ZMP/ZTP riboswitch aptamer (pfl RNA motif): a 77-nucleotide sequence from Austwickia chelonae.
RNA sequence: UGGCACGGACACGACUGGCGCAGGUGGGGCACCACCGGGGAGUGACGUCGUGGGCAUCGCCCGCCUGGGUGCCCACA
Numbered sequence: 001u002g003g004c005a006c007g008g009a010c011a012c013g014a015c016u017g018g019c020g021c022a023g024g025u026g027g028g029g030c031a032c033c034a035c036c037g038g039g040g041a042g043u044g045a046c047g048u049c050g051u052g053g054g055c056a057u058c059g060c061c062c063g064c065c066u067g068g069g070u071g072c073c074c075a076c077a
Stems, first nucleotide, its partner, number of pairs: 004050001008046001010044003015039002017065004024035004054072005